The record is a 47-nucleotide RNA from Bacillus sp. MRMR6, which matches "PreQ1 (pre queuosine) riboswitch aptamer" in Rfam. The base pairs follow the family's consensus structure. This family is a bacterial riboswitch that binds to the metabolite preQ1, an intermediate in the biosynthesis of the modified nucleoside queuosine from GTP. One example of this riboswitch is located in the leader of the Bacillus subtilis ykvJKLM (queCDEF) operon which encodes four genes necessary for queuosine production. On this family, see Reader et al., J Biol Chem 2004: "Identification of four genes necessary for biosynthesis of the modified nucleoside queuosine". Taxonomically the source falls in Bacillus (Bacteria, Bacillati, Bacilli, Caryophanales).
RNA sequence: AUGGCAGAGGUUCAUAGCGAACACCCUCUUAAAAAAACUAUGGAAUG
Numbered sequence: 001a002u003g004g005c006a007g008a009g010g011u012u013c014a015u016a017g018c019g020a021a022c023a024c025c026c027u028c029u030u031a032a033a034a035a036a037a038c039u040a041u042g043g044a045a046u047g
Stems, first nucleotide, its partner, number of pairs: 006029005015040002